This 226-nucleotide RNA from Miscanthus lutarioriparius belongs to the Rfam family "MIR6217 microRNA precursor family".
The family's consensus secondary structure was predicted with RNAalifold.
The organism belongs to Miscanthus, within Eukaryota.
RNA sequence: UAGCAUAGAAUAAUUUAUUCUGUUGUCACUUUGAGUUACGAUAAUUACCAUGUUAAUUUACAAGAUUACAGUAACUCUUUACUAAGUGUUUUACUAUAACAUUAUCAUAAAUAUCACCAUGAGUUGUAGUAACAUGAGUAUCGCAAAUAUGUAUUCAUAUUAUCAUAAAUUAGUACAAAUAUUAUCGUAAAUCAAUGUGGCUAUAGAAUAAAUUAUUCUAUGGCCA
Number, nucleotide and partner (000 for none) at each position: 001u226002a000003g224004c223005a221006u220007a219008g218009a217010a216011u215012a214013a213014u212015u211016u210017a209018u208019u207020c206021u205022g204023u203024u000025g201026u200027c199028a198029c197030u000031u195032u194033g000034a000035g000036u190037u189038a188039c187040g186041a185042u184043a183044a182045u181046u000047a000048c000049c000050a000051u175052g174053u173054u172055a171056a170057u169058u168059u167060a166061c000062a000063a000064g164065a163066u162067u000068a160069c000070a158071g156072u000073a154074a000075c000076u000077c000078u147079u146080u145081a000082c143083u000084a000085a000086g141087u140088g139089u138090u137091u136092u131093a130094c129095u128096a127097u126098a125099a124100c123101a000102u121103u000104a000105u000106c000107a000108u000109a000110a000111a000112u000113a000114u000115c000116a000117c000118c000119a000120u000121g102122a000123g100124u099125u098126g097127u096128a095129g094130u093131a092132a000133c000134a000135u000136g091137a090138g089139u088140a087141u086142c000143g082144c000145a080146a079147a078148u000149a000150u000151g000152u000153a000154u073155u000156c071157a000158u070159a000160u068161u000162a066163u065164c064165a000166u060167a059168a058169a057170u056171u055172a054173g053174u052175a051176c000177a000178a000179a000180u000181a045182u044183u043184a042185u041186c040187g039188u038189a037190a036191a000192u000193c000194a032195a031196u000197g029198u028199g027200g026201c025202u000203a023204u022205a021206g020207a019208a018209u017210a016211a015212a014213u013214u012215a011216u010217u009218c008219u007220a006221u005222g000223g004224c003225c000226a001